[Rfam]
RNA sequence: CUUACAGAUUUCUUUGGCAUUCUGUCCACCUCCUUCUAUGUACAUAAAUGUAUGCAUGUGCUGUGUGUGAAAGAAAGAGGUGGUCAUACUGCCAGUAGAAAUGUGUUAG
Numbered sequence: 001c002u003u004a005c006a007g008a009u010u011u012c013u014u015u016g017g018c019a020u021u022c023u024g025u026c027c028a029c030c031u032c033c034u035u036c037u038a039u040g041u042a043c044a045u046a047a048a049u050g051u052a053u054g055c056a057u058g059u060g061c062u063g064u065g066u067g068u069g070a071a072a073g074a075a076a077g078a079g080g081u082g083g084u085c086a087u088a089c090u091g092c093c094a095g096u097a098g099a100a101a102u103g104u105g106u107u108a109g
Base pairs, nucleotide, nucleotide: 011099014095015094016093017092018091019090023086024085026083027082028081029080030079031078032077
Dot-bracket structure: ..........(..((((((...((.(((((((............................................))))))).))...))))))...)..........